The record is a 177-nucleotide RNA from Jannaschia aquimarina, which matches "Ruegeria cis52 sRNA" in Rfam.
The family's RNA type in Rfam is small RNA.
Pairs were carried over by alignment from the consensus structure, which was predicted with RNAfold.
Rfam links the family to the GO term regulation of gene expression.
For this family Rfam cites "Experimental Identification of Small Non-Coding RNAs in the Model Marine Bacterium Ruegeria pomeroyi DSS-3" (Rivers et al., Front Microbiol, 2016).
The source organism's lineage runs through Bacteria, Pseudomonadati, Alphaproteobacteria, Rhodobacterales and Jannaschia.
The match comes from Rfam's covariance-model search (106 bits).
RNA sequence: CGCAGGGCGUGCUUGAGGACGAUGUCGCGGAAUGCCACGCCCUUGAGGCGGGCGGUCCGGAUAUAUUGGGCGGUCAUCACCUCCGUCAUGGACGCUCGGGUCAUGCGGGCGAUGUAUCCCAUCCCGUACAGCGCGACCGUCAGAACGGGGAGCGUGAAGUUCUCGAAGGUGAUGUUC
Numbered sequence: 001c002g003c004a005g006g007g008c009g010u011g012c013u014u015g016a017g018g019a020c021g022a023u024g025u026c027g028c029g030g031a032a033u034g035c036c037a038c039g040c041c042c043u044u045g046a047g048g049c050g051g052g053c054g055g056u057c058c059g060g061a062u063a064u065a066u067u068g069g070g071c072g073g074u075c076a077u078c079a080c081c082u083c084c085g086u087c088a089u090g091g092a093c094g095c096u097c098g099g100g101u102c103a104u105g106c107g108g109g110c111g112a113u114g115u116a117u118c119c120c121a122u123c124c125c126g127u128a129c130a131g132c133g134c135g136a137c138c139g140u141c142a143g144a145a146c147g148g149g150g151a152g153c154g155u156g157a158a159g160u161u162c163u164c165g166a167a168g169g170u171g172a173u174g175u176u177c
Base pairs, nucleotide, nucleotide: 003139005137007134008133009132010131013128014126015125017124018123019122027120029118036111038109040107044103045102046101049098050097051096052095053073055071056070057069058068059067060066080094082092083091084090143177144176145175149170152163154161